[Rfam]
The family of this 102-nucleotide RNA sequence from Ascochyta rabiei is "Small nucleolar RNA Z13/snr52". Its family is annotated with RNA processing and nucleolus in the Gene Ontology.
RNA sequence: UCUGGUCCAGUGAUGUAAAAUUUUCGGAUGUAAAUCAUUUAUACCACCGAGAGCGCAAAACCAUGUGGAUAUUUUCCGUUGCCUUCCUUCUGAGUACCUCAU
Numbered sequence: 001u002c003u004g005g006u007c008c009a010g011u012g013a014u015g016u017a018a019a020a021u022u023u024u025c026g027g028a029u030g031u032a033a034a035u036c037a038u039u040u041a042u043a044c045c046a047c048c049g050a051g052a053g054c055g056c057a058a059a060a061c062c063a064u065g066u067g068g069a070u071a072u073u074u075u076c077c078g079u080u081g082c083c084u085u086c087c088u089u090c091u092g093a094g095u096a097c098c099u100c101a102u
Stems, first nucleotide, its partner, number of pairs: 003101003025078004

The source organism's lineage runs through Eukaryota, Fungi, Dothideomycetes, Didymellaceae and Ascochyta. It is annotated as a C/D-box small nucleolar RNA.